Rfam assigns this 216-nucleotide RNA sequence from Streptomyces lunaelactis to the family "Streptomyces sRNA 4677". From the family's description: Located in the intergenic region between anti-sigma factor SCO4677 gene and a putative regulatory protein gene SCO4676. scr4677 expression requires the SCO4677 activity and scr4677 sRNA itself seem to affect the levels of the SCO4676-associated transcripts. The family has 12 seed sequences and 563 matches in Rfam 15.1. The match comes from Rfam's covariance-model search (80 bits).

RNA sequence: GGGUCCGGCGGGCCACGAACUCCCCCAAAGAACCUGGGGUAAAGAACCACCUGCCCUCCCUCCUCUCCCGCUCGUCACCCGGAAGGGUGACUGGCUUGCGGGGGCGGGAAGUUGGCGGUUACGUUCGCCGCAACAACCACAGACAUAUGACGGCCCCCGGCCGGGACUGCAAUCCCGAUCGAGGGCCUCACCGAUCAGGAAGAGAUCCACUUCCCG
Numbered sequence: 001g002g003g004u005c006c007g008g009c010g011g012g013c014c015a016c017g018a019a020c021u022c023c024c025c026c027a028a029a030g031a032a033c034c035u036g037g038g039g040u041a042a043a044g045a046a047c048c049a050c051c052u053g054c055c056c057u058c059c060c061u062c063c064u065c066u067c068c069c070g071c072u073c074g075u076c077a078c079c080c081g082g083a084a085g086g087g088u089g090a091c092u093g094g095c096u097u098g099c100g101g102g103g104g105c106g107g108g109a110a111g112u113u114g115g116c117g118g119u120u121a122c123g124u125u126c127g128c129c130g131c132a133a134c135a136a137c138c139a140c141a142g143a144c145a146u147a148u149g150a151c152g153g154c155c156c157c158c159g160g161c162c163g164g165g166a167c168u169g170c171a172a173u174c175c176c177g178a179u180c181g182a183g184g185g186c187c188u189c190a191c192c193g194a195u196c197a198g199g200a201a202g203a204g205a206u207c208c209a210c211u212u213c214c215c216g
Base pairs, nucleotide, nucleotide: 007195009193010192016070017069075090076089077088078087079086080085103129104128105127106126107125152187153186154185155184156183158181159180163176164175165174166173198214199213200212201211202210
For this family Rfam cites "Complex intra-operonic dynamics mediated by a small RNA in Streptomyces coelicolor" (Hindra et al., PLoS One, 2014).